[Rfam]
The record is a 255-nucleotide RNA from Pseudomonas sp. SDI, which matches "Pseudomonas sRNA P24" in Rfam.
On this family, see Livny et al., Nucleic Acids Res 2006: "Identification of 17 Pseudomonas aeruginosa sRNAs and prediction of sRNA-encoding genes in 10 diverse pathogens using the bioinformatic tool sRNAPredict2".
By type it is a non-coding RNA gene.
Pairs were carried over by alignment from the consensus structure, which was predicted with RNAalifold.
The match comes from Rfam's covariance-model search (218 bits).
From the family's description: This small RNA (sRNA) was computationally identified in the genome of the opportunistic pathogen Pseudomonas aeruginosa and its expression verified by Northern blot analysis.

RNA sequence: UUGCGCAAGUAAUGUUUUUAAGCGCAAUUUUCGCAAUCCUCUGCCGCAGGUAUUUCCCUAACAUGGGCACCAGAAUCACUGCCCGGACAUCAGUCCACAGCGGUCGACCCAAUCAGGUCGACGGCGGCCAGCAACCCCACCGGGUUGUGUUCGGCCCCCGGGCUACACACUGUCUACCAGACGGCGUGAGGUGAGCCGGGGCCACAAGCGCCGAGCACGGACAAAAUUCUCGAAGGGGGGCCACAAGGCCUCCCU
Number, nucleotide and partner (000 for none) at each position: 001u012002u011003g010004c009005g000006c000007a000008a000009g004010u003011a002012a001013u000014g000015u000016u000017u000018u000019u000020a000021a000022g000023c000024g000025c000026a000027a000028u000029u000030u000031u000032c000033g000034c000035a000036a000037u000038c000039c000040u000041c000042u000043g057044c000045c000046g054047c000048a000049g000050g000051u000052a000053u000054u046055u000056c000057c043058c000059u000060a000061a000062c000063a000064u000065g000066g000067g000068c000069a000070c000071c000072a000073g000074a000075a000076u194077c193078a192079c191080u190081g163082c162083c161084c160085g096086g095087a094088c093089a000090u000091c000092a000093g088094u087095c086096c085097a000098c000099a000100g125101c124102g000103g122104u121105c000106g000107a118108c117109c116110c000111a000112a000113u000114c000115a000116g109117g108118u107119c000120g000121a104122c103123g000124g101125c100126g156127g155128c154129c153130a000131g000132c000133a146134a145135c144136c143137c142138c000139a000140c000141c000142g137143g136144g135145u134146u133147g000148u000149g000150u000151u000152c000153g129154g128155c127156c126157c000158c000159c000160g084161g083162g082163c081164u000165a000166c188167a187168c186169a000170c184171u183172g182173u181174c180175u000176a000177c000178c000179a000180g174181a173182c172183g171184g170185c000186g168187u167188g166189a000190g080191g079192u078193g077194a076195g216196c215197c213198g212199g211200g000201g209202c208203c000204a000205c000206a000207a000208g202209c201210g000211c199212c198213g197214a000215g196216c195217a000218c000219g000220g000221a000222c000223a000224a000225a000226a000227u000228u000229c000230u000231c000232g000233a000234a255235g254236g253237g252238g000239g250240g249241c248242c247243a000244c000245a000246a000247g242248g241249c240250c239251u000252c237253c236254c235255u234